[Rfam]
Nucleotides: 382
Stems, first nucleotide, its partner, number of pairs: 001304005014294003027281003031278003037053005054263007305316002
Number, partner (000 for none) and nucleotide at each position: 001304a002303c003302a004301a005300u006000u007000u008000g009000a010000u011000g012000a013000u014294g015293c016292a017000a018000a019000c020000u021000g022000a023000a024000a025000a026000u027281u028280g029279u030000a031278c032277a033276g034000g035000a036000c037053a038052g039051c040050g041049g042000g043000g044000c045000a046000g047000u048000a049041c050040c051039g052038c053037u054263c055262g056261c057260c058259u059258c060257c061000a062000c063000c064000a065000u066000a067000a068000g069000g070000a071000g072000a073000u074000u075000a076000g077000u078000g079000u080000g081000g082000g083000a084000a085000a086000a087000a088000a089000u090000c091000a092000a093000a094000a095000g096000g097000g098000a099000a100000u101000u102000c103000a104000a105000a106000a107000u108000g109000a110000u111000g112000a113000a114000g115000a116000c117000c118000c119000u120000u121000g122000c123000u124000c125000u126000a127000u128000g129000c130000a131000c132000a133000a134000c135000c136000u137000a138000u139000u140000c141000a142000u143000a144000u145000g146000u147000a148000a149000g150000g151000u152000g153000c154000u155000g156000g157000a158000a159000a160000g161000a162000a163000a164000u165000u166000g167000c168000u169000a170000a171000g172000u173000g174000g175000a176000u177000g178000u179000u180000a181000a182000g183000a184000g185000c186000u187000u188000a189000u190000a191000u192000u193000g194000u195000u196000u197000g198000g199000a200000g201000c202000a203000u204000a205000u206000g207000u208000g209000c210000u211000g212000a213000u214000a215000u216000u217000u218000u219000u220000c221000u222000c223000a224000u225000u226000g227000g228000u229000g230000g231000u232000a233000u234000a235000u236000u237000a238000u239000a240000u241000c242000u243000a244000a245000u246000c247000u248000u249000u250000u251000u252000u253000u254000g255000a256000u257060g258059g259058g260057g261056g262055c263054g264000a265000a266000a267000u268000a269000g270000g271000a272000u273000c274000g275000a276033c277032u278031g279029g280028c281027a282000a283000g284000u285000a286000u287000a288000g289000g290000g291000a292016u293015g294014u295000g296000g297000a298000g299000a300005a301004u302003u303002g304001u305316g306315g307000a308000g309000u310000g311000a312000u313000c314000g315306c316305c317000u318000u319000a320000u321000a322000g323000a324000u325000c326000a327000u328000a329000u330000u331000a332000a333000g334000a335000a336000a337000u338000g339000c340000c341000a342000a343000u344000g345000a346000u347000a348000a349000u350000u351000g352000g353000g354000c355000a356000u357000a358000u359000g360000a361000g362000g363000a364000u365000u366000a367000u368000g369000c370000a371000c372000u373000a374000g375000c376000u377000g378000c379000a380000u381000a382000a